[Rfam]
RNA sequence: UCGGGGCAUCGCAGGCUCCCGGCGUCUCAAAGACGGGUACCCGUCCAAGUCCUGC
Dot-bracket structure: ((((((....[[[[[.)))))).........(((((....))))).....]]]]]